Rfam assigns this 382-nucleotide RNA from Brevibacillus centrosporus to the family "Bacterial RNase P class B".
The family is grouped with related families in Rfam's "RNaseP clan".
By type it is a ribozyme.

RNA sequence: AAAUGUGGGUAGUCGCUGCUGCGGUCGUUUUCGAUCGGCAGUAGAGGAAAGUCCAGGCUCGCCCAAGCUGAGAUGCUUGGAGUGUUCGUACCUGGUGCAAACCAGGGCAGCGAGGUUCGCUUCGCUGACGGCGUGGAAAAGGCUCUCUCUGAGGCCUGAGUACGCUGAAAGUGCCACAGAAACGUAGCUUUUCUGGCGACAGAAAAGAUGGAACGCGGUAAACCCUGCGAGCGAGAAACCCAAAUUUGGUAGGGGAACCGUCCUGAAGGAACUGAACGUAGGGACGGAUGGCGUCAUUGACGUCAUAGAUAGAUGGCUACCGCUCUAUGUGCGAGGGGCAACCCGCUUGCAGCACGAGAGAAACAGAACCUGGCUUAUAGCA
Numbered sequence: 001a002a003a004u005g006u007g008g009g010u011a012g013u014c015g016c017u018g019c020u021g022c023g024g025u026c027g028u029u030u031u032c033g034a035u036c037g038g039c040a041g042u043a044g045a046g047g048a049a050a051g052u053c054c055a056g057g058c059u060c061g062c063c064c065a066a067g068c069u070g071a072g073a074u075g076c077u078u079g080g081a082g083u084g085u086u087c088g089u090a091c092c093u094g095g096u097g098c099a100a101a102c103c104a105g106g107g108c109a110g111c112g113a114g115g116u117u118c119g120c121u122u123c124g125c126u127g128a129c130g131g132c133g134u135g136g137a138a139a140a141g142g143c144u145c146u147c148u149c150u151g152a153g154g155c156c157u158g159a160g161u162a163c164g165c166u167g168a169a170a171g172u173g174c175c176a177c178a179g180a181a182a183c184g185u186a187g188c189u190u191u192u193c194u195g196g197c198g199a200c201a202g203a204a205a206a207g208a209u210g211g212a213a214c215g216c217g218g219u220a221a222a223c224c225c226u227g228c229g230a231g232c233g234a235g236a237a238a239c240c241c242a243a244a245u246u247u248g249g250u251a252g253g254g255g256a257a258c259c260g261u262c263c264u265g266a267a268g269g270a271a272c273u274g275a276a277c278g279u280a281g282g283g284a285c286g287g288a289u290g291g292c293g294u295c296a297u298u299g300a301c302g303u304c305a306u307a308g309a310u311a312g313a314u315g316g317c318u319a320c321c322g323c324u325c326u327a328u329g330u331g332c333g334a335g336g337g338g339c340a341a342c343c344c345g346c347u348u349g350c351a352g353c354a355c356g357a358g359a360g361a362a363a364c365a366g367a368a369c370c371u372g373g374c375u376u377a378u379a380g381c382a
Stems, first nucleotide, its partner, number of pairs: 004382003007378001008321007016044006049376003053373005058235005063080006086230005091106006107129001108127008130225002133165003140157004145153003171223002173219003188207008239254003258287007288306006323360004328356005
About the family: Ribonuclease P (RNase P) is a ubiquitous endoribonuclease, found in archaea, bacteria and eukarya as well as chloroplasts and mitochondria. Taxonomically the source falls in Brevibacillus (Bacteria, Bacillati, Caryophanales, Paenibacillaceae). The match comes from Rfam's covariance-model search (272 bits).